[Rfam]
RNA: DUF805b RNA
Organism: Tenacibaculum sp. Bg11-29
RNA sequence: AAGGGGGAGGCCGAAAACCCUAUAACAUAGAGUAGGUA
Numbered sequence: 001a002a003g004g005g006g007g008a009g010g011c012c013g014a015a016a017a018c019c020c021u022a023u024a025a026c027a028u029a030g031a032g033u034a035g036g037u038a
Stems, first nucleotide, its partner, number of pairs: 002021004010037003